Overview
The record is a 170-nucleotide RNA sequence from Eubacterium sp. CAG:115, which matches "Lysine riboswitch aptamer" in Rfam. Rfam describes the family as follows. Riboswitches are metabolite binding domains within certain messenger RNAs that serve as precision sensors for their corresponding targets.

RNA sequence: CCCGCUGAUAGAGGUGCGGAACAGAUCAGUAGCGCGUCCAUAACGGUCUGCGGAGACCGGCUGCGCGAAAGGCUUACCGCCGAAGAAUGCACGAUCCGUGGUGUGCAUAUCUGGCUGCACGUUGAACAGGCGUCCGGCUGUCAUCGGUCUGAUGGAGAGCUAUCGCAUAU
Number, nucleotide and partner (000 for none) at each position: 001c000002c000003c000004g000005c000006u165007g164008a163009u162010a161011g160012a000013g000014g000015u000016g080017c079018g078019g077020a000021a075022c000023a074024g073025a000026u000027c000028a000029g000030u000031a000032g066033c065034g064035c063036g062037u000038c060039c059040a000041u000042a000043a000044c000045g000046g000047u000048c000049u000050g000051c000052g000053g000054a000055g000056a000057c000058c000059g039060g038061c000062u036063g035064c034065g033066c032067g000068a000069a000070a000071g000072g000073c024074u023075u021076a000077c019078c018079g017080c016081c000082g000083a000084a112085g111086a110087a108088u107089g106090c105091a104092c103093g102094a000095u000096c000097c000098g000099u000100g000101g000102u093103g092104u091105g090106c089107a088108u087109a000110u086111c085112u084113g139114g138115c137116u136117g135118c000119a133120c132121g131122u130123u129124g000125a000126a000127c000128a000129g123130g122131c121132g120133u119134c000135c117136g116137g115138c114139u113140g000141u155142c154143a153144u152145c151146g150147g000148u000149c000150u146151g145152a144153u143154g142155g141156a000157g000158a000159g000160c011161u010162a009163u008164c007165g006166c000167a000168u000169a000170u000